[Rfam]
RNA: mir-8834 microRNA precursor family
RNA sequence: UGGAGGAACAACCCCAGUGUCUGUGGCAGCUCUGGAAACCUUGAUUCAGCUCCCACAGUAACUACGGAGCUCUCAGCCUGCAGGGGCCUGGAUGCUCCGGGGGCGG
Numbered sequence: 001u002g003g004a005g006g007a008a009c010a011a012c013c014c015c016a017g018u019g020u021c022u023g024u025g026g027c028a029g030c031u032c033u034g035g036a037a038a039c040c041u042u043g044a045u046u047c048a049g050c051u052c053c054c055a056c057a058g059u060a061a062c063u064a065c066g067g068a069g070c071u072c073u074c075a076g077c078c079u080g081c082a083g084g085g086g087c088c089u090g091g092a093u094g095c096u097c098c099g100g101g102g103g104c105g106g
Stems, first nucleotide, its partner, number of pairs: 002098004007093001009090002012086003019078001021076003025072001028071007036063001040058002